[Rfam]
RNA sequence: CCAAGUCCCGACGCUCCCCCCCCGGCGCCGGGACUUUCCCCGAGCCGAGCCCCGGCGCCUCUCCCCCUGGCGUCGGGGCCCGGCUCACUU
Numbered sequence: 001c002c003a004a005g006u007c008c009c010g011a012c013g014c015u016c017c018c019c020c021c022c023c024g025g026c027g028c029c030g031g032g033a034c035u036u037u038c039c040c041c042g043a044g045c046c047g048a049g050c051c052c053c054g055g056c057g058c059c060u061c062u063c064c065c066c067c068u069g070g071c072g073u074c075g076g077g078g079c080c081c082g083g084c085u086c087a088c089u090u
Base pairs, nucleotide, nucleotide: 005034006033007032008031009030010029012027013026014025042086043085044084045083046082047081049079050078051077053075054074055073056072057071058070059069